[Rfam]
RNA sequence: GAUUCCUGUGCCUACUGAGCUGAUUAUCAGUCCUAUAGAACCACUGGCUCAGUUCAGCAGGAACAGGAGUC
Numbered sequence: 001g002a003u004u005c006c007u008g009u010g011c012c013u014a015c016u017g018a019g020c021u022g023a024u025u026a027u028c029a030g031u032c033c034u035a036u037a038g039a040a041c042c043a044c045u046g047g048c049u050c051a052g053u054u055c056a057g058c059a060g061g062a063a064c065a066g067g068a069g070u071c
Stems, first nucleotide, its partner, number of pairs: 003069004008064002011061003015057009027047005